[Rfam]
RNA sequence: GUGCGUCUUCAGGGCGGGGUGUAAUUCCCCACCGGCGGUAUGCAGGCCAUGGCAGUCUGGCCCGCGAGCCCGCGAGCGCCCGCGCUUUACGUUGUAGCGGGGUCAGCAGAUCUGGUGAAAUGCCAGAGCCGACGGUCAUAGUCCGGAUGAGAGAAGAUGUGC
Numbered sequence: 001g002u003g004c005g006u007c008u009u010c011a012g013g014g015c016g017g018g019g020u021g022u023a024a025u026u027c028c029c030c031a032c033c034g035g036c037g038g039u040a041u042g043c044a045g046g047c048c049a050u051g052g053c054a055g056u057c058u059g060g061c062c063c064g065c066g067a068g069c070c071c072g073c074g075a076g077c078g079c080c081c082g083c084g085c086u087u088u089a090c091g092u093u094g095u096a097g098c099g100g101g102g103u104c105a106g107c108a109g110a111u112c113u114g115g116u117g118a119a120a121u122g123c124c125a126g127a128g129c130c131g132a133c134g135g136u137c138a139u140a141g142u143c144c145g146g147a148u149g150a151g152a153g154a155a156g157a158u159g160u161g162c
Base pairs, nucleotide, nucleotide: 003160004159005158006157007156008155009154010153017029018028019027031142032141033131034130035073036072037071038070068129069128076107077106111127112126113125114124115123133145134144135143

Source information
A member of the RNA family "FMN riboswitch aptamer (RFN element)" from Paraburkholderia saeva, 162 nucleotides long. Taxonomically the source falls in Paraburkholderia (Bacteria, Pseudomonadati, Betaproteobacteria, Burkholderiaceae). Its family is annotated with FMN binding in the Gene Ontology. Pairs were carried over by alignment from the consensus structure, which is taken from published work. A search with the family's covariance model found it, with a score of 110 bits.